[Rfam]
RNA: Bacterial RNase P class A
RNA sequence: CCAGCCGGUCGGACGGCCGCACGCGCAAGCGCCGAAAGGCCGCGCGUGAGGAAAGUCCGGGCUCCACGGAAAUACGGUGCCGGGUAACACCCGGCGGGGGUAACCCUAGGGAAAGUGCCACAGAAAGCAGACCGCCCCGCCGGUAAAUCAGCCUUUGAAGCCGGCCUCGGUUCGAAGGCCGAUUUACAGGCGGGGUAAGGGUGAAAGGGUGGGGUAAGGGCCCACCGCGUUUCUGGCAACAGGAACGGCACGGUAAACCCCACCGGGAGCAAGACCGAAUAGGAACGGCGCGAAGGGCAACCUUCAGGGCAUUUCCGGCCCGGCCGUUCGGGUAGGUUGCUUGAGGCCGGCGGCGACGCCGGUCCCAGAGGAAUGGCCGUCACGUCGCGCCGUCUCGGCGGCGCGGCCAUACAGAACCCGGCUUACAGACCGGCUGGUAUU
Number, nucleotide and partner (000 for none) at each position: 001c437002c436003a435004g434005c433006c432007g431008g430009u429010c428011g426012g381013a380014c379015g378016g377017c376018c375019g000020c048021a047022c046023g045024c044025g043026c042027a000028a000029g000030c000031g000032c000033c000034g000035a000036a000037a000038g000039g000040c000041c000042g026043c025044g024045c023046g022047u021048g020049a000050g000051g000052a000053a424054a423055g422056u000057c421058c420059g419060g418061g417062c269063u268064c267065c266066a000067c000068g000069g000070a000071a000072a314073u000074a000075c265076g264077g263078u262079g261080c094081c093082g092083g091084g090085u000086a000087a000088c000089a000090c084091c083092c082093g081094g080095c109096g107097g106098g105099g104100g000101u000102a000103a000104c099105c098106c097107u096108a000109g095110g260111g259112a000113a000114a000115g258116u257117g254118c253119c252120a000121c000122a000123g000124a000125a000126a000127g000128c000129a000130g000131a000132c200133c199134g196135c195136c194137c193138c192139g191140c190141c189142g000143g000144u000145a000146a000147a000148u000149c000150a000151g000152c000153c000154u000155u000156u000157g000158a000159a000160g000161c000162c000163g000164g000165c000166c000167u000168c000169g000170g000171u000172u000173c000174g000175a000176a000177g000178g000179c000180c000181g000182a000183u000184u000185u000186a000187c000188a000189g141190g140191c139192g138193g137194g136195g135196u134197a000198a000199g133200g132201g000202u000203g000204a000205a000206a000207g000208g226209g225210u224211g223212g222213g221214g000215u000216a000217a000218g000219g000220g000221c213222c212223c211224a210225c209226c208227g249228c247229g246230u245231u244232u243233c242234u241235g240236g000237c000238a000239a000240c235241a234242g233243g232244a231245a230246c229247g228248g000249c227250a000251c000252g119253g118254u117255a000256a000257a116258c115259c111260c110261c079262a078263c077264c076265g075266g065267g064268a063269g062270c000271a000272a000273g338274a337275c336276c335277g000278a000279a000280u000281a000282g000283g329284a328285a327286c326287g325288g324289c000290g000291c000292g000293a000294a000295g000296g000297g000298c000299a000300a000301c000302c000303u000304u000305c000306a000307g321308g320309g319310c318311a000312u000313u000314u072315c000316c000317g000318g310319c309320c308321c307322g000323g000324c288325c287326g286327u285328u284329c283330g000331g000332g000333u000334a000335g276336g275337u274338u273339g000340c000341u000342u000343g000344a000345g364346g363347c362348c361349g360350g359351c358352g357353g000354c000355g000356a000357c352358g351359c350360c349361g348362g347363u346364c345365c000366c000367a000368g000369a000370g000371g000372a000373a000374u000375g018376g017377c016378c015379g014380u013381c012382a000383c000384g000385u000386c000387g000388c000389g000390c000391c000392g000393u000394c000395u000396c000397g000398g000399c000400g000401g000402c000403g000404c000405g000406g000407c000408c000409a000410u000411a000412c000413a000414g000415a000416a000417c061418c060419c059420g058421g057422c055423u054424u053425a000426c011427a000428g010429a009430c008431c007432g006433g005434c004435u003436g002437g001438u000439a000440u000441u000